[Rfam]
Nucleotides: 063
Stems, first nucleotide, its partner, number of pairs: 001063013015049004020044007031036001
Number, partner (000 for none) and nucleotide at each position: 001063g002062g003061c004060c005059u006058c007057c008056c009055u010054c011053u012052g013051u014000g015049g016048g017047g018046c019000a020044a021043u022042c023041a024040a025039u026038c027000a028000c029000a030000g031036g032000g033000c034000c035000c036031c037000a038026g039025a040024u041023u042022g043021a044020u045000c046018g047017c048016c049015c050000a051013g052012c053011a054010g055009a056008g057007g058006g059005a060004g061003g062002c063001c
The family of this 63-nucleotide RNA from Cnephaeus nilssonii is "mir-9242 microRNA precursor family". The organism belongs to Cnephaeus, within Eukaryota. Gene Ontology terms of the family: miRNA-mediated post-transcriptional gene silencing and RISC complex.